[Rfam]
A member of the RNA family "MIR2593 microRNA precursor family" from Trifolium medium, 115 nucleotides long. A search with the family's covariance model found it, with a score of 101 bits. Its family is annotated with RISC complex and miRNA-mediated post-transcriptional gene silencing in the Gene Ontology. Rfam 15.1 lists 1,262 matches to the family in 6 species.
RNA sequence: AUAUAAGCAAAAAUCAUCUUUCUAGAUUCAUUGUAUAAUUAAUGUAUUUGGUCUAUAAUAUAGACCAAAUAUGUUAAUCAUACAAUGAAUCUAGAAAGGUGAUUUUUGCUUAUAU
Numbered sequence: 001a002u003a004u005a006a007g008c009a010a011a012a013a014u015c016a017u018c019u020u021u022c023u024a025g026a027u028u029c030a031u032u033g034u035a036u037a038a039u040u041a042a043u044g045u046a047u048u049u050g051g052u053c054u055a056u057a058a059u060a061u062a063g064a065c066c067a068a069a070u071a072u073g074u075u076a077a078u079c080a081u082a083c084a085a086u087g088a089a090u091c092u093a094g095a096a097a098g099g100u101g102a103u104u105u106u107u108g109c110u111u112a113u114a115u
Stems, first nucleotide, its partner, number of pairs: 002114006009107005015101011027089010038078007049067004